[Rfam]
RNA sequence: AAGUGCUUACAGCUCUUUUUGAAUUUGUCCAGCAGGUCUUCCGGCUCGUCCCGGAAGGCCCUC
Numbered sequence: 001a002a003g004u005g006c007u008u009a010c011a012g013c014u015c016u017u018u019u020u021g022a023a024u025u026u027g028u029c030c031a032g033c034a035g036g037u038c039u040u041c042c043g044g045c046u047c048g049u050c051c052c053g054g055a056a057g058g059c060c061c062u063c
Base pairs, nucleotide, nucleotide: 035060036059037058038057039056040055041054042053043052044051